The record is a 37-nucleotide RNA sequence from a Candidatus Hydrogenedentota bacterium, which matches "CRISPR RNA direct repeat element" in Rfam.
RNA sequence: GUAGCACCCGUCCCUCGGGACGGGUGAGGAUUGAAAC
Numbered sequence: 001g002u003a004g005c006a007c008c009c010g011u012c013c014c015u016c017g018g019g020a021c022g023g024g025u026g027a028g029g030a031u032u033g034a035a036a037c
Stems, first nucleotide, its partner, number of pairs: 005026009